mir-126 microRNA precursor family: a 73-nucleotide sequence from Ornithorhynchus anatinus.

RNA sequence: CAGCCACGCAUUAUUACUCACGGUACGAGUUUGAAGCGUCACAGCGCGUACCAAAAGUAAUAAUGGGCAGUUG
Number, nucleotide and partner (000 for none) at each position: 001c000002a000003g000004c000005c000006a000007c000008g000009c065010a064011u063012u062013a061014u060015u059016a058017c057018u056019c000020a000021c000022g052023g051024u050025a049026c048027g047028a000029g045030u000031u000032u000033g000034a000035a000036g000037c000038g000039u000040c000041a000042c000043a000044g000045c029046g000047c027048g026049u025050a024051c023052c022053a000054a000055a000056a018057g017058u016059a015060a014061u013062a012063a011064u010065g009066g000067g000068c000069a000070g000071u000072u000073g000